[Rfam]
RNA sequence: GGAGAUUCAGCCCGACCCCCCGGGGCUGAACUAGACGACCCUGGCCUCCUCCCCCCCCCCUGGCCAGGGUCGUUUUCU
Number, nucleotide and partner (000 for none) at each position: 001g000002g000003a032004g031005a000006u030007u029008c028009a027010g026011c025012c024013c023014g000015a000016c000017c000018c000019c000020c000021c000022g000023g013024g012025g011026c010027u009028g008029a007030a006031c004032u003033a000034g074035a073036c072037g071038a070039c069040c068041c067042u066043g065044g064045c063046c062047u000048c000049c000050u000051c000052c000053c000054c000055c000056c000057c000058c000059c000060c000061u000062g046063g045064c044065c043066a042067g041068g040069g039070u038071c037072g036073u035074u034075u000076u000077c000078u000

A member of the RNA family "6C RNA" from Gordonia jinhuaensis, 78 nucleotides long. The family's RNA type in Rfam is cis-regulatory element. Pairs were carried over by alignment from the consensus structure, which is taken from published work. On this family, see Weinberg et al., Nucleic Acids Res 2007: "Identification of 22 candidate structured RNAs in bacteria using the CMfinder comparative genomics pipeline".